[Rfam]
RNA sequence: AAGUCGGUAAAAUAGAUCCGUAACUUCGGGAAAAGGAUUAGCUCUAAGGGUCGGGUACGUUAGGCCUCGGGUAGAAGGCUUAGAGGUAGGAGAGUACUAGCUUCACGGCCGGCGCUUUCCAGCCGCUAGGUUCGGAUACCCUUAGUAGGUUUCGGCUGUCCGGCGUACGCUUAACGAUUAACUUAGAACUAGUAUAGAUAAG
Numbered sequence: 001a002a003g004u005c006g007g008u009a010a011a012a013u014a015g016a017u018c019c020g021u022a023a024c025u026u027c028g029g030g031a032a033a034a035g036g037a038u039u040a041g042c043u044c045u046a047a048g049g050g051u052c053g054g055g056u057a058c059g060u061u062a063g064g065c066c067u068c069g070g071g072u073a074g075a076a077g078g079c080u081u082a083g084a085g086g087u088a089g090g091a092g093a094g095u096a097c098u099a100g101c102u103u104c105a106c107g108g109c110c111g112g113c114g115c116u117u118u119c120c121a122g123c124c125g126c127u128a129g130g131u132u133c134g135g136a137u138a139c140c141c142u143u144a145g146u147a148g149g150u151u152u153c154g155g156c157u158g159u160c161c162g163g164c165g166u167a168c169g170c171u172u173a174a175c176g177a178u179u180a181a182c183u184u185a186g187a188a189c190u191a192g193u194a195u196a197g198a199u200a201a202g
Base pairs, nucleotide, nucleotide: 015039016038017037018036019035024029040190041189043187044186045185046184047183048182049179050178051177052176053175055168056167057166058165059164060163061162063160064146065145069141070140071139077133078132080130081128082127083126085124086123087122089120090119091118092117093116094115095114097112098111100109101108102107191195
RNA: Eukaryotic large subunit ribosomal RNA, nucleotides 1893 to 2094
Organism: Pseudovirgaria hyperparasitica